The family of this 94-nucleotide sequence from Rhododendron simsii is "Small nucleolar RNA snoR100".

RNA sequence: UCAUGGUAAUGUGCACAAAAAUUGAAUUGGGUCUCUAGGCCUGCCCUCUCUGAUGCCAUUUGGUUUUGAUUUGGGGGCAUGGUUCCGCAACAAA
Numbered sequence: 001u002c003a004u005g006g007u008a009a010u011g012u013g014c015a016c017a018a019a020a021a022u023u024g025a026a027u028u029g030g031g032u033c034u035c036u037a038g039g040c041c042u043g044c045c046c047u048c049u050c051u052g053a054u055g056c057c058a059u060u061u062g063g064u065u066u067u068g069a070u071u072u073g074g075g076g077g078c079a080u081g082g083u084u085c086c087g088c089a090a091c092a093a094a
Base pairs, nucleotide, nucleotide: 002013003012004011029080031078032077033076039070041068043064044063045062

Its family is annotated with RNA processing and nucleolus in the Gene Ontology.
Pairs were carried over by alignment from the consensus structure, which was predicted with WAR.
Lineage of the source: Eukaryota > Streptophyta > Magnoliopsida > Mesangiospermae > Rhododendron.
On this family, see Marker et al., Curr Biol 2002: "Experimental RNomics: identification of 140 candidates for small non-messenger RNAs in the plant Arabidopsis thaliana".
By type it is an H/ACA-box small nucleolar RNA.